[Rfam]
RNA sequence: ACAGUACAAACUGAGCAGGCGAUGGCAGCGGAGAUCAUAAGGUAACAGGCAGAUUUCCGUAUUUAGCAUAAGGCCGGGCUGCAUAAGCGGCAGCGGAUAUGGAUCAUACAAACAUAUCCGCGGGACAGUG
Numbered sequence: 001a002c003a004g005u006a007c008a009a010a011c012u013g014a015g016c017a018g019g020c021g022a023u024g025g026c027a028g029c030g031g032a033g034a035u036c037a038u039a040a041g042g043u044a045a046c047a048g049g050c051a052g053a054u055u056u057c058c059g060u061a062u063u064u065a066g067c068a069u070a071a072g073g074c075c076g077g078g079c080u081g082c083a084u085a086a087g088c089g090g091c092a093g094c095g096g097a098u099a100u101g102g103a104u105c106a107u108a109c110a111a112a113c114a115u116a117u118c119c120g121c122g123g124g125a126c127a128g129u130g
Stems, first nucleotide, its partner, number of pairs: 010129004016124001018075003022069003078091005093121008

Notes:
This 130-nucleotide RNA sequence from Clostridiaceae bacterium AF18-31LB belongs to the Rfam family "NiCo (Nickel/Cobalt) riboswitch aptamer". Its Rfam clan is "NiCo_riboswitches".